The family of this 66-nucleotide sequence from Candidatus Methylospira mobilis is "int-alpA RNA".
[Rfam]
RNA sequence: AUCGCGCCUAGUCCGGCCAGACGAAAACGGGAUUCCUUCACCCGCUGGCGCAUCCAGUCUUGAAGG
Numbered sequence: 001a002u003c004g005c006g007c008c009u010a011g012u013c014c015g016g017c018c019a020g021a022c023g024a025a026a027a028c029g030g031g032a033u034u035c036c037u038u039c040a041c042c043c044g045c046u047g048g049c050g051c052a053u054c055c056a057g058u059c060u061u062g063a064a065g066g
Base pairs, nucleotide, nucleotide: 004051005050006049007048008047011022012021013020028044029043030042031041035066036065037064038063039062040061
Annotation:
The family has 167 seed sequences and 577 matches in Rfam 15.1. About the family: Acidobacteria (1 example), Planctomycetes (1 example), Proteobacteria. The source organism's lineage runs through Bacteria, Pseudomonadati, Pseudomonadota, Methylococcales and Candidatus Methylospira. The base pairs follow the family's consensus structure, which is taken from published work.